A member of the RNA family "RAGATH-18 RNA", 65 nucleotides long. It is one of the family's seed sequences. The family's consensus secondary structure is taken from published work. The family's RNA type in Rfam is small RNA.
[Rfam]
RNA sequence: CCUUGGGAGUGCUAAAACAAUACAAGUAGAGGUUUGCCUCCAAAGUAAGCACACUGAAUAAGGAA
Numbered sequence: 001c002c003u004u005g006g007g008a009g010u011g012c013u014a015a016a017a018c019a020a021u022a023c024a025a026g027u028a029g030a031g032g033u034u035u036g037c038c039u040c041c042a043a044a045g046u047a048a049g050c051a052c053a054c055u056g057a058a059u060a061a062g063g064a065a
Base pairs, nucleotide, nucleotide: 001063002062003061004060005059009052010051011050012049013048021047022046023045029040030039031038